[Rfam]
Nucleotides: 116
Stems, first nucleotide, its partner, number of pairs: 002115007013041001015040003021031003025090001027088002042082004047078002049074002086108001091105005
Number, partner (000 for none) and nucleotide at each position: 001000a002115u003114c004113u005112u006111a007110u008109c009000a010000a011000g012000a013041g014000u015040g016039g017038c018000g019000g020000a021031g022030g023029g024000a025090c026000u027088g028087g029023c030022c031021c032000u033000g034000u035000g036000a037000a038017g039016c040015c041013c042082a043081g044080c045079a046000a047078c048077c049074u050073a051000u052000u053000u054000a055000u056000u057000g058000g059000u060000u061000c062000a063000u064000u065000u066000a067000c068000c069000a070000a071000u072000u073050u074049a075000g076000u077048g078047g079045u080044g081043c082042u083000a084000a085000u086108u087028c088027c089000u090025g091105c092104a093103g094102c095101u096000u097000u098000u099000u100000u101095a102094g103093c104092u105091g106000g107000u108086a109008g110007a111006u112005g113004a114003g115002a116000g

Description:
The record is a 116-nucleotide sequence from Clostridium uliginosum, which matches "SAM riboswitch aptamer (S box leader)" in Rfam. The organism belongs to Clostridium, within Bacteria. Pairs were carried over by alignment from the consensus structure, which is taken from published work. The match comes from Rfam's covariance-model search (86 bits).